This 103-nucleotide sequence belongs to the Rfam family "Small nucleolar RNA R44/J54/Z268 family". The family has 29 seed sequences and 1,168 matches in Rfam 15.1. The family's consensus secondary structure was predicted with PFOLD.

RNA sequence: GAAGCAGGUGAUGAAAGCCAGACAGGACAUCAGCACCCUCUUCUCUUUUGAGAGAGAUGGGAAUGAUCGACUAAGUCUAUAAUGGGAAUCUCUCUGAUGCUUU
Numbered sequence: 001g002a003a004g005c006a007g008g009u010g011a012u013g014a015a016a017g018c019c020a021g022a023c024a025g026g027a028c029a030u031c032a033g034c035a036c037c038c039u040c041u042u043c044u045c046u047u048u049u050g051a052g053a054g055a056g057a058u059g060g061g062a063a064u065g066a067u068c069g070a071c072u073a074a075g076u077c078u079a080u081a082a083u084g085g086g087a088a089u090c091u092c093u094c095u096g097a098u099g100c101u102u103u
Base pairs, nucleotide, nucleotide: 002102003101004100005099006098